[Rfam]
RNA: mir-239 microRNA precursor family
Organism: Leptobrachium leishanense
RNA sequence: CAUUAAUUAUACUGCAGAGAGGUGCUGCAGCAUGGUCGGCCAGCACCUCUCUGCAGUAUAAUUAAUGC
Numbered sequence: 001c002a003u004u005a006a007u008u009a010u011a012c013u014g015c016a017g018a019g020a021g022g023u024g025c026u027g028c029a030g031c032a033u034g035g036u037c038g039g040c041c042a043g044c045a046c047c048u049c050u051c052u053g054c055a056g057u058a059u060a061a062u063u064a065a066u067g068c
Stems, first nucleotide, its partner, number of pairs: 003065010015053009025043003028039001030037001